[Rfam]
RNA sequence: CCGCCGGGACGACCCGGCCCAGCACGGGCCUUGCCAGGACGACCUGC
Numbered sequence: 001c002c003g004c005c006g007g008g009a010c011g012a013c014c015c016g017g018c019c020c021a022g023c024a025c026g027g028g029c030c031u032u033g034c035c036a037g038g039a040c041g042a043c044c045u046g047c
Stems, first nucleotide, its partner, number of pairs: 003018006035046004
The family of this 47-nucleotide RNA from Pseudoponticoccus marisrubri is "Guanidine-II riboswitch aptamer (mini-ykkC)".
Rfam describes the family as follows. Simpler in structure and has fewer highly conserved nucleotide positions than the ykkC-yxkD leader. Despite this each of its two stem-loop structures directly bind free guanidine. Therefore, mini-ykkC RNA motif represents a distinct class of guanidine-sensing RNAs.
The literature on the family includes a 2007 paper in Nucleic Acids Res by Weinberg et al., "Identification of 22 candidate structured RNAs in bacteria using the CMfinder comparative genomics pipeline".